The record is a 65-nucleotide RNA sequence from Massilia eurypsychrophila, which matches "SAH (S-adenosyl-L-homocysteine) riboswitch aptamer" in Rfam.
The match comes from Rfam's covariance-model search (51 bits).
NCBI's taxonomy places the organism under Bacteria, Pseudomonadota, Betaproteobacteria, Burkholderiales, Massilia.
Nucleotides: 065
Base pairs, nucleotide, nucleotide: 002047004045005044006043007042008041021034022033023032024031
Number, partner (000 for none) and nucleotide at each position: 001000c002047a003000u004045u005044c006043c007042g008041a009000g010000g011000a012000g013000c014000g015000u016000u017000g018000c019000g020000a021034c022033g023032a024031a025000u026000u027000c028000a029000a030000u031024u032023u033022c034021g035000c036000c037000a038000g039000g040000c041008u042007c043006g044005g045004a046000c047002u048000a049000c050000a051000c052000u053000g054000c055000g056000c057000u058000c059000a060000c061000g062000u063000u064000a065000c